[Rfam]
RNA sequence: UUUUAUUGCUCAGAGGCUGGUACUCGUAAGAAGGCGCACCGCCAUGGGAGGCUGACCUCCCAAGGUUCGGCGGUGCGCGGAAAACAGGGGCUUUGCGGCCCCUUUUUUAAUUCCAAAA
Numbered sequence: 001u002u003u004u005a006u007u008g009c010u011c012a013g014a015g016g017c018u019g020g021u022a023c024u025c026g027u028a029a030g031a032a033g034g035c036g037c038a039c040c041g042c043c044a045u046g047g048g049a050g051g052c053u054g055a056c057c058u059c060c061c062a063a064g065g066u067u068c069g070g071c072g073g074u075g076c077g078c079g080g081a082a083a084a085c086a087g088g089g090g091c092u093u094u095g096c097g098g099c100c101c102c103u104u105u106u107u108u109a110a111u112u113c114c115a116a117a118a
Base pairs, nucleotide, nucleotide: 007028009026030113031112032111034078035077036076037075038074039073040072041071042070045062046061047060048059049058050057084104086103087102088101089100090099091098092097
Shown here is a 118-nucleotide sequence from Rugositalea oryzae, a member of the family "Rhizobiales sRNA Atu_C8". The organism belongs to Rugositalea, within Bacteria. A reference for the family is Wilms et al. (2012), "Deep sequencing uncovers numerous small RNAs on all four replicons of the plant pathogen Agrobacterium tumefaciens", RNA Biol. The family's RNA type in Rfam is small RNA. The base pairs follow the family's consensus structure, which was predicted with CMfinder. The match comes from Rfam's covariance-model search (62 bits).